[Rfam]
RNA: c-di-GMP-I riboswitch aptamer
RNA sequence: GUAAGAAAAAGGCAAACUGUUUGAAAAAGCAGGACGCAAAGCCUAGGAUCUAAGGGUAAAAGUACCUAUGAUAGCCUGGUUACCUAA
Numbered sequence: 001g002u003a004a005g006a007a008a009a010a011g012g013c014a015a016a017c018u019g020u021u022u023g024a025a026a027a028a029g030c031a032g033g034a035c036g037c038a039a040a041g042c043c044u045a046g047g048a049u050c051u052a053a054g055g056g057u058a059a060a061a062g063u064a065c066c067u068a069u070g071a072u073a074g075c076c077u078g079g080u081u082a083c084c085u086a087a
Base pairs, nucleotide, nucleotide: 012037013036017032018031019030020029021028022027040081041080042079043078045077046076047075048072049071050070055066056065057064058063